[Rfam]
RNA sequence: UGACAUCGGGGAGGCGAUGACCUCCAGGCGGAACUCGGUCACCAAUCGCCCUGGGUGAGCCAGUGGUGAGACCGGGCCCGUUCACU
Numbered sequence: 001u002g003a004c005a006u007c008g009g010g011g012a013g014g015c016g017a018u019g020a021c022c023u024c025c026a027g028g029c030g031g032a033a034c035u036c037g038g039u040c041a042c043c044a045a046u047c048g049c050c051c052u053g054g055g056u057g058a059g060c061c062a063g064u065g066g067u068g069a070g071a072c073c074g075g076g077c078c079c080g081u082u083c084a085c086u
Stems, first nucleotide, its partner, number of pairs: 002085001005082001007080004013061003022055003027050003037073002039069005